[Rfam]
This 92-nucleotide sequence from Clostridium sp. CAG:226 belongs to the Rfam family "TPP riboswitch aptamer (THI element)". Rfam links the family to the GO term thiamine pyrophosphate binding. Lineage of the source: Bacteria > Bacillati > Bacillota > Clostridiaceae > Clostridium.
RNA sequence: AUCACCCGCUGGGGGAGCUUGUUUUCAGGCUGAGAUAUACCCUUGGAACCUGUACGGAUAAUGCCGGCGUAGGGAAGCGGAGAGAAUAGAUU
Numbered sequence: 001a002u003c004a005c006c007c008g009c010u011g012g013g014g015g016a017g018c019u020u021g022u023u024u025u026c027a028g029g030c031u032g033a034g035a036u037a038u039a040c041c042c043u044u045g046g047a048a049c050c051u052g053u054a055c056g057g058a059u060a061a062u063g064c065c066g067g068c069g070u071a072g073g074g075a076a077g078c079g080g081a082g083a084g085a086a087u088a089g090a091u092u
Stems, first nucleotide, its partner, number of pairs: 006080005011043004017030005049073004055066003